[Rfam]
The family of this 37-nucleotide RNA from Roseiflexus sp. RS-1 is "CRISPR RNA direct repeat element".
The family has 4 seed sequences and 521 matches in Rfam 15.1.
Its family is annotated with defense response in the Gene Ontology.
RNA sequence: AUUUCGGCAAUUUCGACUCGUUGAAGAGUACUGAAAC
Numbered sequence: 001a002u003u004u005c006g007g008c009a010a011u012u013u014c015g016a017c018u019c020g021u022u023g024a025a026g027a028g029u030a031c032u033g034a035a036a037c
Stems, first nucleotide, its partner, number of pairs: 011036004016029004